[Rfam]
RNA sequence: UUCACGUCGGCCCCUCCCCCCCGGGCCGACCUUACGCGGGCCUCGGCUAACUCCCCCCCUUCGCCGAGGCCCGCUCCAU
Numbered sequence: 001u002u003c004a005c006g007u008c009g010g011c012c013c014c015u016c017c018c019c020c021c022c023g024g025g026c027c028g029a030c031c032u033u034a035c036g037c038g039g040g041c042c043u044c045g046g047c048u049a050a051c052u053c054c055c056c057c058c059c060u061u062c063g064c065c066g067a068g069g070c071c072c073g074c075u076c077c078a079u
Base pairs, nucleotide, nucleotide: 002034004032006030007029008028009027010026011025012024013023036074037073038072039071040070041069042068043067044066045065046064047063
RNA: 6C RNA